About this RNA:
The record is a 326-nucleotide RNA from Coccidioides posadasii, which matches "Fungal signal recognition particle RNA" in Rfam. A search with the family's covariance model found it, with a score of 162 bits. The family's consensus secondary structure is taken from published work. The family is grouped with related families in Rfam's "SRP clan". The family has 50 seed sequences and 748 matches in Rfam 15.1. A reference for the family is Wild et al. (2002), "Towards the structure of the mammalian signal recognition particle", Curr Opin Struct Biol. Taxonomically the source falls in Coccidioides posadasii (Eukaryota, Eurotiomycetes, Eurotiomycetidae, Onygenaceae).
[Rfam]
RNA sequence: UAGCUGUCAUGGCCUAAUUGGAAGACUGUCUGCUCAACACCCGCAGCCAACCCAUGAAUUCUGCUUAGUCAGAAAGGACGAGACGGUGCCUGGUUCGAAUCCCGGAGUCGCGACCCGGGCGUGGUUUUAUUUAAUGGACCGCGUCUUUUCUGGUUCUCCCACACUCGUGCGAGCAAUCCACGAACGGCUGUGGCGCGCUAGGCAAUGGAGGCGACGCUUGAGGGAAGCAAUUCUGCAGAGACACCUCCACUCCGGGAUGGCGGCACCAGAUCACAUCGGCUGUUCACUGUGGGUUGGCCGUGGAUUCUGGACGGUCAACUUUUUUU
Numbered sequence: 001u002a003g004c005u006g007u008c009a010u011g012g013c014c015u016a017a018u019u020g021g022a023a024g025a026c027u028g029u030c031u032g033c034u035c036a037a038c039a040c041c042c043g044c045a046g047c048c049a050a051c052c053c054a055u056g057a058a059u060u061c062u063g064c065u066u067a068g069u070c071a072g073a074a075a076g077g078a079c080g081a082g083a084c085g086g087u088g089c090c091u092g093g094u095u096c097g098a099a100u101c102c103c104g105g106a107g108u109c110g111c112g113a114c115c116c117g118g119g120c121g122u123g124g125u126u127u128u129a130u131u132u133a134a135u136g137g138a139c140c141g142c143g144u145c146u147u148u149u150c151u152g153g154u155u156c157u158c159c160c161a162c163a164c165u166c167g168u169g170c171g172a173g174c175a176a177u178c179c180a181c182g183a184a185c186g187g188c189u190g191u192g193g194c195g196c197g198c199u200a201g202g203c204a205a206u207g208g209a210g211g212c213g214a215c216g217c218u219u220g221a222g223g224g225a226a227g228c229a230a231u232u233c234u235g236c237a238g239a240g241a242c243a244c245c246u247c248c249a250c251u252c253c254g255g256g257a258u259g260g261c262g263g264c265a266c267c268a269g270a271u272c273a274c275a276u277c278g279g280c281u282g283u284u285c286a287c288u289g290u291g292g293g294u295u296g297g298c299c300g301u302g303g304a305u306u307c308u309g310g311a312c313g314g315u316c317a318a319c320u321u322u323u324u325u326u
Stems, first nucleotide, its partner, number of pairs: 003013002016324002020320002024316007036305001038303001043301002046298011059074005077284003081281002084278005090269005095263003099258009156195001158193002165183005171178002198202001206249006217240003224233003